[Rfam]
Shown here is an 86-nucleotide RNA sequence from Acer yangbiense, a member of the family "mir-160 microRNA precursor family". The match comes from Rfam's covariance-model search (71 bits).
Nucleotides: 086
Stems, first nucleotide, its partner, number of pairs: 001086006008079007016071009027060003
Number, partner (000 for none) and nucleotide at each position: 001086g002085u003084a004083u005082g006081c007000c008079u009078g010077g011076c012075u013074c014073c015000c016071u017070g018069u019068a020067u021066g022065c023064u024063g025000u026000u027060u028059g029058c030000a031000g032000a033000g034000c035000c036000c037000a038000u039000c040000a041000a042000a043000a044000c045000a046000u047000c048000g049000g050000u051000g052000g053000u054000c055000u056000u057000c058029g059028u060027g061000g062000a063024u064023a065022g066021c067020g068019u069018g070017c071016g072000a073014g074013g075012a076011g077010c078009c079008a080000u081006g082005c083004a084003u085002g086001c